[Rfam]
RNA sequence: CUAAUUGGAUGAGGUGCGAAUGUCAUCAGUAACUUACUAUGUAAAUCUGCAAAUUGUAGUAAGCGAAAGGGGCCUUUGCCGAAAUAGAGUUCUGUUUGCAGACAGGUCUCUGUUGGAUUGUAUAUUAAGAGUAUGCAGUCUGUCAUUAUUCUUUGAAUAAUGGAGUGCUUCCACUUGU
Numbered sequence: 001c002u003a004a005u006u007g008g009a010u011g012a013g014g015u016g017c018g019a020a021u022g023u024c025a026u027c028a029g030u031a032a033c034u035u036a037c038u039a040u041g042u043a044a045a046u047c048u049g050c051a052a053a054u055u056g057u058a059g060u061a062a063g064c065g066a067a068a069g070g071g072g073c074c075u076u077u078g079c080c081g082a083a084a085u086a087g088a089g090u091u092c093u094g095u096u097u098g099c100a101g102a103c104a105g106g107u108c109u110c111u112g113u114u115g116g117a118u119u120g121u122a123u124a125u126u127a128a129g130a131g132u133a134u135g136c137a138g139u140c141u142g143u144c145a146u147u148a149u150u151c152u153u154u155g156a157a158u159a160a161u162g163g164a165g166u167g168c169u170u171c172c173a174c175u176u177g178u
Base pairs, nucleotide, nucleotide: 006173007172008171009170011168016079017078018077019076020075022073023072024071033063034062035061036060037059038058039057083114084113085112086111087110088109089108091106092105093104094103115141116140117139118138119137120136121135122134123133124132125131143163144162145161146160147159148158149157
The record is a 178-nucleotide RNA from Ornithinibacillus hominis, which matches "Lysine riboswitch aptamer" in Rfam. Lineage of the source: Bacteria > Bacilli > Caryophanales > Bacillaceae > Ornithinibacillus. The family's consensus secondary structure is taken from published work. Rfam links the family to the GO term lysine biosynthetic process.